[Rfam]
RNA: ASpks TB sRNA
RNA sequence: CUUGAUGGAGCCGAGCCACAGCGGCUUGUCGCCGGACCGGCUCUGGCCGUAGGUGGCCAGCAGUGCCUGGGCCUC
Numbered sequence: 001c002u003u004g005a006u007g008g009a010g011c012c013g014a015g016c017c018a019c020a021g022c023g024g025c026u027u028g029u030c031g032c033c034g035g036a037c038c039g040g041c042u043c044u045g046g047c048c049g050u051a052g053g054u055g056g057c058c059a060g061c062a063g064u065g066c067c068u069g070g071g072c073c074u075c
Stems, first nucleotide, its partner, number of pairs: 014026004032070002038065002043060003047056003
Dot-bracket structure: .............((((.....)))).....((....((...(((.(((....))).)))...))...)).....